[Rfam]
RNA: L17-Actino-Proteobacteria ribosomal protein leader
Organism: Nonomuraea montanisoli
RNA sequence: CGGACGGCACCCGACGGGUGCCUCCGGCCCGACUCCGGUACCUGGUACGGCCGGAGCGG
Numbered sequence: 001c002g003g004a005c006g007g008c009a010c011c012c013g014a015c016g017g018g019u020g021c022c023u024c025c026g027g028c029c030c031g032a033c034u035c036c037g038g039u040a041c042c043u044g045g046u047a048c049g050g051c052c053g054g055a056g057c058g059g
Base pairs, nucleotide, nucleotide: 001026002025003024004023006022007021008020009019010018029059030058031057033056034055035054036053037052038051039050